[Rfam]
Background:
A member of the RNA family "Ribosomal protein L10 leader" from Mediterraneibacter torques, 143 nucleotides long. Rfam classes the family as a cis-regulatory leader. Rfam's curators write: This family is a putative r-protein leader autoregulatory structure found in B. subtilis and other low-GC Gram-positive bacteria.
RNA sequence: UAUAAAAGUAAUUGACUGCCGAAGACAGCAGGUGCCGUUAGGCAUAAGGUUGAGAACGCCUGCCGAGGAAGAUACGAAUUCUUUUUAAAAAGAACAUUUGUAAACCUCUGUGUCUUCUGUCGCAGAGGUUUUUUGUAUAGGCG
Numbered sequence: 001u002a003u004a005a006a007a008g009u010a011a012u013u014g015a016c017u018g019c020c021g022a023a024g025a026c027a028g029c030a031g032g033u034g035c036c037g038u039u040a041g042g043c044a045u046a047a048g049g050u051u052g053a054g055a056a057c058g059c060c061u062g063c064c065g066a067g068g069a070a071g072a073u074a075c076g077a078a079u080u081c082u083u084u085u086u087a088a089a090a091a092g093a094a095c096a097u098u099u100g101u102a103a104a105c106c107u108c109u110g111u112g113u114c115u116u117c118u119g120u121c122g123c124a125g126a127g128g129u130u131u132u133u134u135g136u137a138u139a140g141g142c143g
Stems, first nucleotide, its partner, number of pairs: 028063006034043003105128008114119001